[Rfam]
RNA sequence: GGCGUCCGAUCGCCGAAUCCCCCACCGCGGGGGAACCGGGGACCCAACUUUCCGGGGUGAAUCCGAGAGCCCCGAGCGCUGUGCGGCGCGCUCGAAUUUCGCGGUAGGGCAUCUCCUGGCCCGAACCCGUCAGCUAACCCGGUAGGCGUCCUAAGGAGAGGAC
Numbered sequence: 001g002g003c004g005u006c007c008g009a010u011c012g013c014c015g016a017a018u019c020c021c022c023c024a025c026c027g028c029g030g031g032g033g034a035a036c037c038g039g040g041g042a043c044c045c046a047a048c049u050u051u052c053c054g055g056g057g058u059g060a061a062u063c064c065g066a067g068a069g070c071c072c073c074g075a076g077c078g079c080u081g082u083g084c085g086g087c088g089c090g091c092u093c094g095a096a097u098u099u100c101g102c103g104g105u106a107g108g109g110c111a112u113c114u115c116c117u118g119g120c121c122c123g124a125a126c127c128c129g130u131c132a133g134c135u136a137a138c139c140c141g142g143u144a145g146g147c148g149u150c151c152u153a154a155g156g157a158g159a160g161g162a163c
Stems, first nucleotide, its partner, number of pairs: 011148004018034005035143006045054001055128003063104003107122004